[Rfam]
RNA sequence: AACCACACUAUCGAUGAAUGGAUUCACCGGUGAGAUGACAUGGUUGUUCCAUCGACGUGGCAUACUAUUAAUUUCGUGCGAUGGCUGGUAAUAGGAUGUCAUGUCCUCGUCCUAGGUGAAACAGCCACGUCAUCUCGCAGGUGAAUCCAUUUAUCGAUAGUGUGGUU
Numbered sequence: 001a002a003c004c005a006c007a008c009u010a011u012c013g014a015u016g017a018a019u020g021g022a023u024u025c026a027c028c029g030g031u032g033a034g035a036u037g038a039c040a041u042g043g044u045u046g047u048u049c050c051a052u053c054g055a056c057g058u059g060g061c062a063u064a065c066u067a068u069u070a071a072u073u074u075c076g077u078g079c080g081a082u083g084g085c086u087g088g089u090a091a092u093a094g095g096a097u098g099u100c101a102u103g104u105c106c107u108c109g110u111c112c113u114a115g116g117u118g119a120a121a122c123a124g125c126c127a128c129g130u131c132a133u134c135u136c137g138c139a140g141g142u143g144a145a146u147c148c149a150u151u152u153a154u155c156g157a158u159a160g161u162g163u164g165g166u167u
Stems, first nucleotide, its partner, number of pairs: 001167007009159007017151003021147008030138004035133005041127008051117002054105003060099004065094006077088001

This 167-nucleotide RNA sequence from Oryza sativa belongs to the Rfam family "MIR807 microRNA precursor family". The literature on the family includes a 2006 paper in FEBS Lett by Luo et al., "Rice embryogenic calli express a unique set of microRNAs, suggesting regulatory roles of microRNAs in plant post-embryogenic development". The organism belongs to Oryza sativa, within Eukaryota. The match comes from Rfam's covariance-model search (134 bits).